A member of the RNA family "Bacterial RNase P class A" from Rhodovulum iodosum, 397 nucleotides long. Taxonomically the source falls in Rhodovulum (Bacteria, Pseudomonadati, Rhodobacterales, Paracoccaceae). Ribonuclease P (RNase P) is a ubiquitous endoribonuclease, found in archaea, bacteria and eukarya as well as chloroplasts and mitochondria. The family's consensus secondary structure is taken from published work. By type it is a ribozyme.
[Rfam]
RNA sequence: GCGGAUGGCCGGAUGGCCGCGGUGCCGGAUCCCAUCCGGUAUCGAGGAAAGUCCGGACUCCACGAGGCAACGGUGCCGGGUAACGCCCGGCCGGGGAAACCCGAGGGAAAGCGCCACAGAGAACAAACCGCCCCUGUCCGCAGGGGUAAGGGUGAAACGGUGGGGUAAGAGCCCACCGCGGGCCUGGCAACAGGGCCGGCACGGCAAGCCCCACCGGGAGCAAUGCCGAAUAGGGACCCCGCGCUCCGGAGCUGAUCCGGGGCAGGGCGGCUUCGGCCCAGGGGUCCGGGUUGGCAGCUGGAGCGCACCGGUAACGGUGCGCGCAGAGGAAUGGUCAUCCAGCCCCGGAUCUUCGGUCCGGGGUGGACAGAAUCCGGCUUACAGGCCGUCCGCGCGU
Numbered sequence: 001g002c003g004g005a006u007g008g009c010c011g012g013a014u015g016g017c018c019g020c021g022g023u024g025c026c027g028g029a030u031c032c033c034a035u036c037c038g039g040u041a042u043c044g045a046g047g048a049a050a051g052u053c054c055g056g057a058c059u060c061c062a063c064g065a066g067g068c069a070a071c072g073g074u075g076c077c078g079g080g081u082a083a084c085g086c087c088c089g090g091c092c093g094g095g096g097a098a099a100c101c102c103g104a105g106g107g108a109a110a111g112c113g114c115c116a117c118a119g120a121g122a123a124c125a126a127a128c129c130g131c132c133c134c135u136g137u138c139c140g141c142a143g144g145g146g147u148a149a150g151g152g153u154g155a156a157a158c159g160g161u162g163g164g165g166u167a168a169g170a171g172c173c174c175a176c177c178g179c180g181g182g183c184c185u186g187g188c189a190a191c192a193g194g195g196c197c198g199g200c201a202c203g204g205c206a207a208g209c210c211c212c213a214c215c216g217g218g219a220g221c222a223a224u225g226c227c228g229a230a231u232a233g234g235g236a237c238c239c240c241g242c243g244c245u246c247c248g249g250a251g252c253u254g255a256u257c258c259g260g261g262g263c264a265g266g267g268c269g270g271c272u273u274c275g276g277c278c279c280a281g282g283g284g285u286c287c288g289g290g291u292u293g294g295c296a297g298c299u300g301g302a303g304c305g306c307a308c309c310g311g312u313a314a315c316g317g318u319g320c321g322c323g324c325a326g327a328g329g330a331a332u333g334g335u336c337a338u339c340c341a342g343c344c345c346c347g348g349a350u351c352u353u354c355g356g357u358c359c360g361g362g363g364u365g366g367a368c369a370g371a372a373u374c375c376g377g378c379u380u381a382c383a384g385g386c387c388g389u390c391c392g393c394g395c396g397u
Base pairs, nucleotide, nucleotide: 001393002392003391004390005389006388007387008386009385010384011382012339013338014337015336016335017334018333020044021043022042023041024040025039026038027037028036049380050379051378053377054376055375056374057373058220059219060218061217066274067273071216072215073214074213075212076090077089078088079087080086091105092103093102094101095100106211107210111209112208113205114204115203128151129150130147131146132145133144134143135142136141159177160176161175162174163173164172178200179198180197181196183194184193185192186191224296225295226294227293234287235286236285237284238283239282266279267278303322304321305320306319307318308317309316310315